Shown here is a 57-nucleotide RNA sequence from Rhizocola hellebori, a member of the family "Actino-pnp RNA".
RNA sequence: GUCGGUCCUCGGUAGUGGUACCCGGAGCGAAUCCGAGUACUUCGAUCGAAGACCGGC
Numbered sequence: 001g002u003c004g005g006u007c008c009u010c011g012g013u014a015g016u017g018g019u020a021c022c023c024g025g026a027g028c029g030a031a032u033c034c035g036a037g038u039a040c041u042u043c044g045a046u047c048g049a050a051g052a053c054c055g056g057c
Base pairs, nucleotide, nucleotide: 001057002056003055004054005053006052007051009049010048011047012046013045017041018040019039020038021037023035024034025033026032
Rfam classes the family as a cis-regulatory element. NCBI's taxonomy places the organism under Bacteria, Bacillati, Micromonosporales, Micromonosporaceae, Rhizocola.